[Rfam]
RNA sequence: GCCCGGAUGACCCUCGGUGGUCUGGGGUGCAGGCUUCAAACCUGUAGCUGCCUAGUGACAGAGGGUUCAUUUCCACAUUUCGGGU
Numbered sequence: 001g002c003c004c005g006g007a008u009g010a011c012c013c014u015c016g017g018u019g020g021u022c023u024g025g026g027g028u029g030c031a032g033g034c035u036u037c038a039a040a041c042c043u044g045u046a047g048c049u050g051c052c053u054a055g056u057g058a059c060a061g062a063g064g065g066u067u068c069a070u071u072u073c074c075a076c077a078u079u080u081c082g083g084g085u
Stems, first nucleotide, its partner, number of pairs: 001085007012027006028046006048061003052057001064074002
Dot-bracket structure: (((((((....((((((....))))))((((((.......)))))).(((.(....).)))..((.......))....)))))))
The record is an 85-nucleotide RNA from Podiceps cristatus, which matches "Selenocysteine transfer RNA" in Rfam. Rfam 15.1 lists 4,211 matches to the family in 3,344 species. NCBI's taxonomy places the organism under Eukaryota, Opisthokonta, Craniata, Theropoda, Podiceps. A search with the family's covariance model found it, with a score of 54 bits.